[Rfam]
RNA sequence: CGAUGGCGUUGAAGGGAAAGGUGGCCAAUCGUUUGAAUUGGGAGAUUUUCCCGGAGUAUGCGAAGCCGGCGAGCUUUCGCGA
Numbered sequence: 001c002g003a004u005g006g007c008g009u010u011g012a013a014g015g016g017a018a019a020g021g022u023g024g025c026c027a028a029u030c031g032u033u034u035g036a037a038u039u040g041g042g043a044g045a046u047u048u049u050c051c052c053g054g055a056g057u058a059u060g061c062g063a064a065g066c067c068g069g070c071g072a073g074c075u076u077u078c079g080c081g082a
Stems, first nucleotide, its partner, number of pairs: 014052003018049004025041005059081004068074001

Shown here is an 82-nucleotide RNA sequence from Ezakiella coagulans, a member of the family "S10-Clostridia ribosomal protein leader". A reference for the family is Eckert and Weinberg (2020), "Discovery of 20 novel ribosomal leader candidates in bacteria and archaea", BMC Microbiol. The base pairs follow the family's consensus structure, which is taken from published work. The source organism's lineage runs through Bacteria, Bacillati, Bacillota, Tissierellia and Ezakiella. It scores 36 bits against the family's covariance model.